[Rfam]
A member of the RNA family "mir-67 microRNA precursor family" from Trichomalopsis sarcophagae, 99 nucleotides long.
RNA sequence: GACCGCGUGAACUCACUCAACCUGGGUGUGAUGCUUGCCCGUGAAAUUGAAAAGGGCCCUUGCGGUCAUCACAACCUUUUUGAGUGAGCGAACGCGCUC
Numbered sequence: 001g002a003c004c005g006c007g008u009g010a011a012c013u014c015a016c017u018c019a020a021c022c023u024g025g026g027u028g029u030g031a032u033g034c035u036u037g038c039c040c041g042u043g044a045a046a047u048u049g050a051a052a053a054g055g056g057c058c059c060u061u062g063c064g065g066u067c068a069u070c071a072c073a074a075c076c077u078u079u080u081u082g083a084g085u086g087a088g089c090g091a092a093c094g095c096g097c098u099c
Stems, first nucleotide, its partner, number of pairs: 008091001012088009024076002027073007
The match comes from Rfam's covariance-model search (60 bits).